[Rfam]
RNA sequence: GAUUGAAAAAGGCAAACCUAUCGAAAGGUAGGGACGCAAAGCUUCAGAUCUAAAGUUCUUAAUAGAACCAUGAUGGCUGGGCUGCCAAU
Numbered sequence: 001g002a003u004u005g006a007a008a009a010a011g012g013c014a015a016a017c018c019u020a021u022c023g024a025a026a027g028g029u030a031g032g033g034a035c036g037c038a039a040a041g042c043u044u045c046a047g048a049u050c051u052a053a054a055g056u057u058c059u060u061a062a063u064a065g066a067a068c069c070a071u072g073a074u075g076g077c078u079g080g081g082c083u084g085c086c087a088a089u
Stems, first nucleotide, its partner, number of pairs: 012037002017032006040083004045079003048074003055068004
Background: c-di-GMP-I riboswitch aptamer: an 89-nucleotide sequence from Melghiribacillus thermohalophilus. The source organism's lineage runs through Bacteria, Bacillota, Caryophanales, Bacillaceae and Melghiribacillus.